[Rfam]
RNA sequence: GAUACCCCCCUGUCGUUGACGUGAUUGGACUCUGACGCAGGGUCAACUAGCCUUGACGUGUGGUUCUUCGCGCGCGGAACCCGGGGCGGUCCGAGCCACUAGGGGGAGGCUCGGACCGCUCUCC
Numbered sequence: 001g002a003u004a005c006c007c008c009c010c011u012g013u014c015g016u017u018g019a020c021g022u023g024a025u026u027g028g029a030c031u032c033u034g035a036c037g038c039a040g041g042g043u044c045a046a047c048u049a050g051c052c053u054u055g056a057c058g059u060g061u062g063g064u065u066c067u068u069c070g071c072g073c074g075c076g077g078a079a080c081c082c083g084g085g086g087c088g089g090u091c092c093g094a095g096c097c098a099c100u101a102g103g104g105g106g107a108g109g110c111u112c113g114g115a116c117c118g119c120u121c122u123c124c
Stems, first nucleotide, its partner, number of pairs: 001014004015051004021032001023030001033045004057074007075083002085120013099105001